[Rfam]
RNA sequence: UGUGUGACUGUAUUUUUAAAGAGCUAAAACCAUUUAAAAAAUACAAGUUACACA
Numbered sequence: 001u002g003u004g005u006g007a008c009u010g011u012a013u014u015u016u017u018a019a020a021g022a023g024c025u026a027a028a029a030c031c032a033u034u035u036a037a038a039a040a041a042u043a044c045a046a047g048u049u050a051c052a053c054a
Stems, first nucleotide, its partner, number of pairs: 001054009010044003013040007
K10 transport/localisation element (TLS): a 54-nucleotide sequence from Carassius auratus. The base pairs follow the family's consensus structure, which is taken from published work. Rfam describes the family as follows. This family represents the 44 nucleotide K10 transport/localisation element (TLS) from Drosophila melanogaster. K10 TLS is responsible for the transport and anterior localisation of K10 mRNA and acts to establish dorsoventral polarity in the oocyte. Its family is annotated with mRNA transport and intracellular mRNA localization in the Gene Ontology. The family's RNA type in Rfam is cis-regulatory element. The source organism's lineage runs through Eukaryota, Eumetazoa, Deuterostomia, Euteleostomi and Carassius.